Rfam assigns this 132-nucleotide RNA from Cervus elaphus to the family "Small nucleolar RNA SNORA72". Gene Ontology terms of the family: RNA processing and nucleolus. The literature on the family includes a 1997 paper in Genes Dev by Ganot et al., "The family of box ACA small nucleolar RNAs is defined by an evolutionarily conserved secondary structure and ubiquitous sequence elements essential for RNA accumulation". It is annotated as an H/ACA-box small nucleolar RNA.
RNA sequence: UUGUGAAUAUUCUCGCUGUUCUGCUUUCAUAAUAAUUGGGGCAGGCUAAACAUUCACUAUACUAAGACCAUUCAUGUGUCCCCAGAUCUACUUCUUUUCCUAAGUCUGGUUUUAUAAGUGCUGGUGAUAAAC
Numbered sequence: 001u002u003g004u005g006a007a008u009a010u011u012c013u014c015g016c017u018g019u020u021c022u023g024c025u026u027u028c029a030u031a032a033u034a035a036u037u038g039g040g041g042c043a044g045g046c047u048a049a050a051c052a053u054u055c056a057c058u059a060u061a062c063u064a065a066g067a068c069c070a071u072u073c074a075u076g077u078g079u080c081c082c083c084a085g086a087u088c089u090a091c092u093u094c095u096u097u098u099c100c101u102a103a104g105u106c107u108g109g110u111u112u113u114a115u116a117a118g119u120g121c122u123g124g125u126g127a128u129a130a131a132c
Stems, first nucleotide, its partner, number of pairs: 003057003016044008025035002067125004073120001082109006089102002